[Rfam]
RNA sequence: GCGCCCCCGACGACAAGGUAGCCACUUGAGGCUGUCUUCCUCAUUUGAGGAUAGUCGGGGGUGUUUUA
Numbered sequence: 001g002c003g004c005c006c007c008c009g010a011c012g013a014c015a016a017g018g019u020a021g022c023c024a025c026u027u028g029a030g031g032c033u034g035u036c037u038u039c040c041u042c043a044u045u046u047g048a049g050g051a052u053a054g055u056c057g058g059g060g061g062u063g064u065u066u067u068a
Stems, first nucleotide, its partner, number of pairs: 001064011017036007038051005